[Rfam]
The record is a 102-nucleotide RNA from Musca domestica, which matches "mir-965 microRNA precursor family" in Rfam. The family has 16 seed sequences and 224 matches in Rfam 15.1.

RNA sequence: UCUUUGAGGGGUAAUGCUGUACGUUGUAUGUUUUGUUUAUUUGAAAAUAUCUAAACUCCGUUUAUAUGAUAUGCAUAAGCGUAUAGCUUUUCCCCUUAAAUG
Dot-bracket structure: ..(((((.(((.((..(((((..((.((((...........................................))))))..)))))..)).))).)))))..